The record is a 105-nucleotide RNA sequence from Vulpes vulpes, which matches "mir-8834 microRNA precursor family" in Rfam.
Pairs were carried over by alignment from the consensus structure, which was predicted with RNAalifold.
Rfam 15.1 lists 13,926 matches to the family in 17 species.
A search with the family's covariance model found it, with a score of 71 bits.
RNA sequence: CGGAGGAACAGCCUCAGUGGCGGGGCCAGCUCUGGAGCCCUGGCUUCAGCCCCCGCAGUAACUAUAGAGCUCUCCCUCUGCAGGGCCUGGAUGCUCUGGGGGCAG
Numbered sequence: 001c002g003g004a005g006g007a008a009c010a011g012c013c014u015c016a017g018u019g020g021c022g023g024g025g026c027c028a029g030c031u032c033u034g035g036a037g038c039c040c041u042g043g044c045u046u047c048a049g050c051c052c053c054c055g056c057a058g059u060a061a062c063u064a065u066a067g068a069g070c071u072c073u074c075c076c077u078c079u080g081c082a083g084g085g086c087c088u089g090g091a092u093g094c095u096c097u098g099g100g101g102g103c104a105g
Stems, first nucleotide, its partner, number of pairs: 002097004007092001009089003012085003019078002022075004028071007036063001040058003